[Rfam]
RNA sequence: AGAGGGUGCCUUUCAGGCAUCCUCUCCUAAAACUUUCAAGGCCGAUCCCUCCGGGGGUCGGCCCUUUUUUUGUCCAGC
Number, nucleotide and partner (000 for none) at each position: 001a000002g000003a000004g000005g000006g000007u000008g018009c017010c016011u015012u000013u000014c000015a011016g010017g009018c008019a000020u000021c000022c000023u000024c000025u000026c000027c000028u000029a000030a000031a000032a000033c000034u000035u000036u000037c000038a000039a000040g063041g062042c061043c060044g059045a058046u057047c056048c055049c000050u000051c000052c000053g000054g000055g048056g047057g046058u045059c044060g043061g042062c041063c040064c000065u000066u000067u000068u000069u000070u000071u000072g000073u000074c000075c000076a000077g000078c000
Source information
The record is a 78-nucleotide RNA sequence from Sphingomonas sp. AAP5, which matches "Makes More Granules Regulator RNA (mmgR)" in Rfam. About the family: SuhB later renamed mmgR (makes more granules regulator) was a putative non-coding RNA found multiple times in the Agrobacterium tumefaciens genome and related alpha-proteobacteria. A search with the family's covariance model found it, with a score of 56 bits.